Rfam assigns this 68-nucleotide RNA from Aureobasidium subglaciale to the family "bZIP non canonical Hac1/Xbp1 intron". Lineage of the source: Eukaryota > leotiomyceta > Dothideomycetidae > Saccotheciaceae > Aureobasidium subglaciale. The family's RNA type in Rfam is small RNA. Rfam describes the family as follows. bZIP intron RNA is a non-canonical intron that was first reported in HAC1 gene in yeast and XBP1 gene in Metazoa.

RNA sequence: AUCUCGCUCGACACGACACAACAUUCUGCCGCAAUGUUGUGUGACCUGCAGUGUCGGUCGAGCGAGAU
Numbered sequence: 001a002u003c004u005c006g007c008u009c010g011a012c013a014c015g016a017c018a019c020a021a022c023a024u025u026c027u028g029c030c031g032c033a034a035u036g037u038u039g040u041g042u043g044a045c046c047u048g049c050a051g052u053g054u055c056g057g058u059c060g061a062g063c064g065a066g067a068u
Stems, first nucleotide, its partner, number of pairs: 001068006008060001010058001020038006043055003